[Rfam]
Nucleotides: 140
Stems, first nucleotide, its partner, number of pairs: 002061001004059002018047009028037001075132002078129002080126001087117005
Number, partner (000 for none) and nucleotide at each position: 001000u002061g003000c004059g005058g006000c007000u008000c009000c010000a011000u012000c013000a014000a015000a016000u017000u018047c019046a020045g021044u022043c023042c024041u025040c026039g027000u028037c029000c030000a031000g032000c033000c034000c035000a036000u037028g038000c039026u040025g041024g042023g043022g044021a045020c046019u047018g048000g049000c050000c051000a052000g053000g054000c055000c056000a057000g058005c059004u060000a061002c062000c063000a064000c065000g066000g067000c068000a069000a070000u071000a072000a073000c074000u075132g076131u077000g078129g079128c080126u081000c082000g083000u084000g085000a086000c087117c088116c089115c090114c091113a092000c093000u094000g095000u096000c097000u098000c099000u100000c101000c102000u103000c104000c105000c106000u107000c108000c109000g110000c111000u112000c113091u114090g115089g116088g117087g118000c119000c120000a121000a122000a123000u124000g125000a126080a127000c128079g129078c130000a131076a132075c133000a134000g135000a136000c137000a138000g139000c140000g